[Rfam]
RNA sequence: UGAUGAAGAUGAUGAAAGCAAUGGACGGGUGAUGAUCAACCUUUUCUUCAUUUGAUCAAAAAUAUCCUCGCUACGUUCUUUCUGAUUCAUUC
Numbered sequence: 001u002g003a004u005g006a007a008g009a010u011g012a013u014g015a016a017a018g019c020a021a022u023g024g025a026c027g028g029g030u031g032a033u034g035a036u037c038a039a040c041c042u043u044u045u046c047u048u049c050a051u052u053u054g055a056u057c058a059a060a061a062a063u064a065u066c067c068u069c070g071c072u073a074c075g076u077u078c079u080u081u082c083u084g085a086u087u088c089a090u091u092c
Base pairs, nucleotide, nucleotide: 004089005088006087007086
Background: A member of the RNA family "Small nucleolar RNA R32/R81/Z41" from Theobroma cacao, 92 nucleotides long. It scores 66 bits against the family's covariance model. Rfam classes the family as a C/D-box small nucleolar RNA. The organism belongs to Theobroma, within Eukaryota. The literature on the family includes a 2001 paper in J Mol Biol by Barneche et al., "Identification of 66 box C/D snoRNAs in Arabidopsis thaliana: extensive gene duplications generated multiple isoforms predicting new ribosomal RNA 2'-O-methylation sites".